[Rfam]
The family of this 80-nucleotide RNA from Roseburia sp. CAG:303 is "Fluoride riboswitch aptamer (crcB RNA motif)". The family's consensus secondary structure is taken from published work.

RNA sequence: AUAUUAUAAGGGAAUGAAGUUCUCCCCUAAUGUAAUAAACAUUAAAACCGCUUAUUUAAGCUGAUGACUUCUGCGUAAUA
Numbered sequence: 001a002u003a004u005u006a007u008a009a010g011g012g013a014a015u016g017a018a019g020u021u022c023u024c025c026c027c028u029a030a031u032g033u034a035a036u037a038a039a040c041a042u043u044a045a046a047a048c049c050g051c052u053u054a055u056u057u058a059a060g061c062u063g064a065u066g067a068c069u070u071c072u073g074c075g076u077a078a079u080a
Base pairs, nucleotide, nucleotide: 010026011025012024013023016071017070018069019068020067021066050061051060052059053058